[Rfam]
RNA sequence: CAGUGAUUCCCGGGGUGUUCCCCGAUUUAAUAUCGGGGGGCUGAGAUCAAACCCGUAGAACCUGAUCAGGGUAAUGCCUGCGCAGGGAAGGACGAGUCCUCACAU
Number, nucleotide and partner (000 for none) at each position: 001c000002a000003g000004u000005g000006a000007u092008u091009c090010c000011c055012g054013g053014g052015g000016u049017g041018u040019u039020c038021c037022c036023c035024g034025a033026u032027u000028u000029a000030a000031u000032a026033u025034c024035g023036g022037g021038g020039g019040g018041c017042u000043g000044a000045g000046a000047u000048c000049a016050a000051a000052c014053c013054c012055g011056u000057a000058g000059a000060a000061c086062c085063u084064g083065a000066u000067c080068a079069g078070g077071g000072u000073a000074a000075u000076g000077c070078c069079u068080g067081c000082g000083c064084a063085g062086g061087g000088a000089a000090g009091g008092a007093c000094g000095a000096g000097u000098c000099c000100u000101c000102a000103c000104a000105u000
A member of the RNA family "TPP riboswitch aptamer (THI element)" from Terrimonas sp., 105 nucleotides long. Vitamin B(1) in its active form thiamin pyrophosphate (TPP) is an essential coenzyme that is synthesised by coupling of pyrimidine and thiazole moieties in bacteria.